Nucleotides: 156
Base pairs, nucleotide, nucleotide: 003154004153005152006151007150008149009148010147017029018028019027031136032135033125034124035061036060037059038058056123057122065100066099067098068097069096105121106120107119108118109117127139128138129137
Number, partner (000 for none) and nucleotide at each position: 001000c002000a003154a004153a005152u006151u007150c008149u009148u010147c011000g012000g013000g014000g015000c016000a017029a018028g019027g020000u021000g022000a023000a024000a025000u026000u027019c028018c029017u030000u031136a032135c033125c034124g035061g036060c037059g038058g039000u040000g041000a042000g043000c044000a045000g046000g047000a048000a049000a050000c051000u052000g053000c054000a055000a056123g057122u058038c059037c060036g061035u062000g063000a064000c065100c066099c067098g068097a069096a070000c071000a072000a073000g074000a075000a076000a077000a078000g079000c080000c081000c082000u083000u084000g085000c086000g087000u088000u089000u090000u091000u092000c093000u094000u095000a096069u097068u098067c099066g100065g101000u102000g103000g104000a105121g106120c107119u108118g109117g110000u111000g112000u113000g114000a115000c116000u117109c118108c119107g120106g121105c122057a123056c124034c125033g126000a127139c128138a129137g130000u131000u132000a133000a134000a135032g136031u137129c138128u139127g140000g141000a142000u143000g144000g145000g146000a147010g148009a149008a150007g151006a152005a153004u154003u155000c156000g